[Rfam]
RNA sequence: CUUGAGAAUUUGGCCUCUGUCCAUGUCUAAUUAUUAAUUCCAAUAAUUGAGAUGGAUAGAGCCCAAAUUCUCAAG
Numbered sequence: 001c002u003u004g005a006g007a008a009u010u011u012g013g014c015c016u017c018u019g020u021c022c023a024u025g026u027c028u029a030a031u032u033a034u035u036a037a038u039u040c041c042a043a044u045a046a047u048u049g050a051g052a053u054g055g056a057u058a059g060a061g062c063c064c065a066a067a068u069u070c071u072c073a074a075g
Stems, first nucleotide, its partner, number of pairs: 001075013015061010026050002029048007
About this RNA
The family of this 75-nucleotide RNA sequence from Glycine max is "MIR5038 microRNA precursor family". The sequence is in the family's curated seed alignment. The family has 2 seed sequences and 9 matches in Rfam 15.1. The base pairs follow the family's consensus structure, which was predicted with RNAalifold. Taxonomically the source falls in Glycine subgen. Soja (Eukaryota, Magnoliopsida, Fabales, Papilionoideae).